[Rfam]
RNA sequence: GCCCGGACACCGCCGAACCGGCACCGGACUCUUCCGGCGCCGGACCGGGGACCCACCGCAGUCAUGGGGUGAAGCGUGGCCGGCUCCGCCGGUCGCGCCGGGCGAUCUUCACGCCCGAACCCGUCAGCUAACUCGGUAGGCGGUUGAUGGAGAACAG
Number, nucleotide and partner (000 for none) at each position: 001g000002c000003c000004c000005g000006g000007a000008c000009a000010c000011c142012g141013c140014c139015g000016a000017a000018c043019c042020g041021g040022c039023a000024c000025c000026g000027g000028a000029c000030u000031c000032u000033u000034c000035c000036g000037g000038c000039g022040c021041c020042g019043g018044a137045c136046c135047g134048g133049g132050g000051a000052c000053c000054c066055a065056c000057c000058g000059c000060a000061g000062u000063c000064a000065u055066g054067g122068g121069g120070u000071g000072a000073a000074g000075c097076g096077u095078g094079g093080c092081c091082g090083g089084c088085u000086c000087c000088g084089c083090c082091g081092g080093u079094c078095g077096c076097g075098c000099c000100g116101g115102g114103c113104g000105a000106u000107c000108u000109u000110c000111a000112c000113g103114c102115c101116c100117g000118a000119a000120c069121c068122c067123g000124u000125c000126a000127g000128c000129u000130a000131a000132c049133u048134c047135g046136g045137u044138a000139g014140g013141c012142g011143g000144u000145u000146g000147a000148u000149g000150g000151a000152g000153a000154a000155c000156a000157g000
Shown here is a 157-nucleotide sequence from Blastococcus sp. CT_GayMR20, a member of the family "c-di-AMP riboswitch aptamer (ydaO/yuaA leader)". The match comes from Rfam's covariance-model search (70 bits). Rfam's curators write: This family represents a conserved RNA structure found upstream of the ydaO and yuaA genes in Bacillus subtilis and related genes in other bacteria. Rfam 15.1 lists 7,607 matches to the family in 2,262 species.